Source information:
A member of the RNA family "U7 small nuclear RNA" from Notechis scutatus, 61 nucleotides long.
RNA sequence: CUGUGACUACAGCUCUUUUUGUAUUUGUCUAGAAGGCUUUCUGCUGUGGCGGAGAGCCUCA
Dot-bracket structure: ..................................((((((((((....))))))))))...
The base pairs follow the family's consensus structure, which was predicted with PFOLD. A reference for the family is Marz et al. (2007), "U7 snRNAs: a computational survey", Genomics Proteomics Bioinformatics. The source organism's lineage runs through Eukaryota, Chordata, Vertebrata, Sauropsida and Notechis.